[Rfam]
RNA sequence: GGGGAUACACUUAGAGUCCCCAGUACAGGAGUGUUAAUAGCGGUGUCUUUGGCCGGGCACGGUGGUUAGUGAAUC
Numbered sequence: 001g002g003g004g005a006u007a008c009a010c011u012u013a014g015a016g017u018c019c020c021c022a023g024u025a026c027a028g029g030a031g032u033g034u035u036a037a038u039a040g041c042g043g044u045g046u047c048u049u050u051g052g053c054c055g056g057g058c059a060c061g062g063u064g065g066u067u068a069g070u071g072a073a074u075c
Stems, first nucleotide, its partner, number of pairs: 001021006034069005040063002043060006
Notes:
Shown here is a 75-nucleotide RNA, a member of the family "L13-Bacteroidia ribosomal protein leader". The family's RNA type in Rfam is cis-regulatory leader. On this family, see Eckert and Weinberg, BMC Microbiol 2020: "Discovery of 20 novel ribosomal leader candidates in bacteria and archaea".